[Rfam]
RNA sequence: AUCUGAUAAAGGCAAACUCCACCGAAAGGGGAGGACGCAAAGCUCUGAGCCUAACCGUUUUUAACAACGCAUGGUUGUCAAGUUGCCGGA
Dot-bracket structure: ...........((...((((.((....))))))...))..((((.((((((....((((......))))...)))..)))))))......
Numbered sequence: 001a002u003c004u005g006a007u008a009a010a011g012g013c014a015a016a017c018u019c020c021a022c023c024g025a026a027a028g029g030g031g032a033g034g035a036c037g038c039a040a041a042g043c044u045c046u047g048a049g050c051c052u053a054a055c056c057g058u059u060u061u062u063a064a065c066a067a068c069g070c071a072u073g074g075u076u077g078u079c080a081a082g083u084u085g086c087c088g089g090a
Stems, first nucleotide, its partner, number of pairs: 012038002017033004022029002041084004046080003049075003056069004
Overview: Shown here is a 90-nucleotide RNA from Ureibacillus yapensis, a member of the family "c-di-GMP-I riboswitch aptamer". Rfam's curators write: GEMM was predicted in a large-scale screen for bacterial structured RNA regulatory elements. The family is grouped with related families in Rfam's "c-di-GMP_I riboswitch clan".